[Rfam]
RNA sequence: CGGCGGGACACUCCUCCCCACCGAGGAGCGCCUAUCUGAAAGGAUAGUUACA
Dot-bracket structure: ..........((((((......))))))...((((((....)))))).....